[Rfam]
Nucleotides: 111
Base pairs, nucleotide, nucleotide: 023101024100025099026098027097028096029095030094035092036091037090038089039088040086041085042084048082049081050080051079052078
Number, partner (000 for none) and nucleotide at each position: 001000a002000u003000u004000a005000u006000u007000u008000u009000u010000u011000a012000a013000a014000c015000a016000g017000a018000a019000c020000u021000c022000a023101c024100a025099u026098g027097c028096a029095c030094c031000g032000a033000c034000a035092c036091a037090u038089g039088a040086u041085u042084c043000a044000g045000g046000g047000u048082g049081c050080c051079c052078g053000g054000g055000c056000g057000c058000u059000a060000u061000c062000a063000g064000c065000g066000a067000a068000a069000g070000u071000u072000g073000a074000u075000c076000a077000u078052c079051g080050g081049g082048u083000c084042g085041a086040a087000u088039u089038c090037a091036u092035g093000g094030g095029g096028u097027g098026u099025g100024u101023g102000g103000a104000g105000g106000c107000c108000u109000a110000a111000c
Rfam assigns this 111-nucleotide sequence from Endozoicomonas numazuensis to the family "t44 RNA".
The family's RNA type in Rfam is small RNA.
Pairs were carried over by alignment from the consensus structure, which was predicted with LocARNA.
Taxonomically the source falls in Endozoicomonas (Bacteria, Pseudomonadati, Gammaproteobacteria, Oceanospirillales).
This family consists of a number of bacterial RNA genes of between 135 and 170 bases in length.